Notes
The family of this 67-nucleotide RNA sequence from Actinoplanes derwentensis is "Transposase-2 RNA". The organism belongs to Actinoplanes, within Bacteria. By type it is a small RNA. It scores 64 bits against the family's covariance model.

RNA sequence: GAAACGUGAAUCCGGCACCACGCCCGUGGGUCAGACCGGGACCGUCCCGCCGCAAGGCAGGACUAUC
Numbered sequence: 001g002a003a004a005c006g007u008g009a010a011u012c013c014g015g016c017a018c019c020a021c022g023c024c025c026g027u028g029g030g031u032c033a034g035a036c037c038g039g040g041a042c043c044g045u046c047c048c049g050c051c052g053c054a055a056g057g058c059a060g061g062a063c064u065a066u067c
Stems, first nucleotide, its partner, number of pairs: 011040005018029004044063004049058003